[Rfam]
RNA sequence: CGGGAUUCGUCCCGUAGAGAAGGAAUGUAGCUCAGGAAAUGAGCCGAACCUUAGG
Numbered sequence: 001c002g003g004g005a006u007u008c009g010u011c012c013c014g015u016a017g018a019g020a021a022g023g024a025a026u027g028u029a030g031c032u033c034a035g036g037a038a039a040u041g042a043g044c045c046g047a048a049c050c051u052u053a054g055g
Stems, first nucleotide, its partner, number of pairs: 001014005021051003030044005
Rfam assigns this 55-nucleotide RNA sequence to the family "eL15-Euryarchaeota ribosomal protein leader". The literature on the family includes a 2020 paper in BMC Microbiol by Eckert and Weinberg, "Discovery of 20 novel ribosomal leader candidates in bacteria and archaea". Pairs were carried over by alignment from the consensus structure, which is taken from published work. The sequence is in the family's curated seed alignment.